This 76-nucleotide RNA from Niastella vici belongs to the Rfam family "Fluoride riboswitch aptamer (crcB RNA motif)". It scores 48 bits against the family's covariance model. NCBI's taxonomy places the organism under Bacteria, Bacteroidota, Chitinophagia, Chitinophagaceae, Niastella.
[Rfam]
RNA sequence: CACCACAAAGGAAAUGGUGUCUUCCUAUUUGAACCGUCCCGAUGAUUAACUAAGGACUGAUGGCGCCUACAAAUAG
Numbered sequence: 001c002a003c004c005a006c007a008a009a010g011g012a013a014a015u016g017g018u019g020u021c022u023u024c025c026u027a028u029u030u031g032a033a034c035c036g037u038c039c040c041g042a043u044g045a046u047u048a049a050c051u052a053a054g055g056a057c058u059g060a061u062g063g064c065g066c067c068u069a070c071a072a073a074u075a076g
Base pairs, nucleotide, nucleotide: 010025011024012023013022016067017066018065019064020063021062036057037056038055039054